[Rfam]
RNA sequence: CCAAAGGCUCUUUUCAGAGCCACCACCUGCUCAGAAAAGGUGCUGU
Numbered sequence: 001c002c003a004a005a006g007g008c009u010c011u012u013u014u015c016a017g018a019g020c021c022a023c024c025a026c027c028u029g030c031u032c033a034g035a036a037a038a039g040g041u042g043c044u045g046u
Base pairs, nucleotide, nucleotide: 006021007020008019009018010017011016
RNA: Histone 3' UTR stem-loop
Organism: Rhinolophus ferrumequinum